[Rfam]
RNA sequence: AAUCCGCGCAGGCCAUCCCCCCUUUCGGCCUGCACGGAGCCGGGGAACCACUUCUGGGUUCCGUGACGCGCCCGGAGCCCUCACCUCCGCUCGACGGAGCAGAUCUCCGGCCGCUCUUCACAGAUCCCUUGGGGCGAAUCGGCGCCUUCUCGCGCCGUAGGGCGACCUUCACGCCCGAGCCCGACAGCUCACCCGGCCGGCCUUAUGGAAGGAACGA
Numbered sequence: 001a002a003u004c005c006g007c008g009c010a011g012g013c014c015a016u017c018c019c020c021c022c023u024u025u026c027g028g029c030c031u032g033c034a035c036g037g038a039g040c041c042g043g044g045g046a047a048c049c050a051c052u053u054c055u056g057g058g059u060u061c062c063g064u065g066a067c068g069c070g071c072c073c074g075g076a077g078c079c080c081u082c083a084c085c086u087c088c089g090c091u092c093g094a095c096g097g098a099g100c101a102g103a104u105c106u107c108c109g110g111c112c113g114c115u116c117u118u119c120a121c122a123g124a125u126c127c128c129u130u131g132g133g134g135c136g137a138a139u140c141g142g143c144g145c146c147u148u149c150u151c152g153c154g155c156c157g158u159a160g161g162g163c164g165a166c167c168u169u170c171a172c173g174c175c176c177g178a179g180c181c182c183g184a185c186a187g188c189u190c191a192c193c194c195g196g197c198c199g200g201c202c203u204u205a206u207g208g209a210a211g212g213a214a215c216g217a
Base pairs, nucleotide, nucleotide: 003038004037005036039197040196041195042194043193044192049131050130132182133181134180140157141156142155143154160176161175162174163173